Source information
The record is a 54-nucleotide RNA sequence from Synaphobranchus kaupii, which matches "UnaL2 LINE 3' element" in Rfam. Pairs were carried over by alignment from the consensus structure, which is taken from published work. A reference for the family is Baba et al. (2004), "Solution structure of an RNA stem-loop derived from the 3' conserved region of eel LINE UnaL2", RNA. The organism belongs to Synaphobranchus, within Eukaryota. The family's RNA type in Rfam is cis-regulatory element.
RNA sequence: UAAUACAAGCUGUGUAAAUCGCUCUGGAUAAGAGCGUCUGCUAAAUGUUUAACA
Numbered sequence: 001u002a003a004u005a006c007a008a009g010c011u012g013u014g015u016a017a018a019u020c021g022c023u024c025u026g027g028a029u030a031a032g033a034g035c036g037u038c039u040g041c042u043a044a045a046u047g048u049u050u051a052a053c054a
Stems, first nucleotide, its partner, number of pairs: 013043001014041003020036006